[Rfam]
The family of this 117-nucleotide sequence from Niallia circulans is "epsC RNA".
The organism belongs to Niallia, within Bacteria.
Pairs were carried over by alignment from the consensus structure, which is taken from published work.
RNA sequence: UGGUGAUGUCUCUUAACCAAUAUCAAUAGAGGCACUCGGUCAUGCUGUGGGUAGAAUGAAGGCUCUACCUUAGCGCUAGUCUGCAAGAGUGUGAUGUGAGGAGAGGUUAAAUGCCUC
Numbered sequence: 001u002g003g004u005g006a007u008g009u010c011u012c013u014u015a016a017c018c019a020a021u022a023u024c025a026a027u028a029g030a031g032g033c034a035c036u037c038g039g040u041c042a043u044g045c046u047g048u049g050g051g052u053a054g055a056a057u058g059a060a061g062g063c064u065c066u067a068c069c070u071u072a073g074c075g076c077u078a079g080u081c082u083g084c085a086a087g088a089g090u091g092u093g094a095u096g097u098g099a100g101g102a103g104a105g106g107u108u109a110a111a112u113g114c115c116u117c
Stems, first nucleotide, its partner, number of pairs: 001019004007034007035100004039095008049070007073084002075081001103117005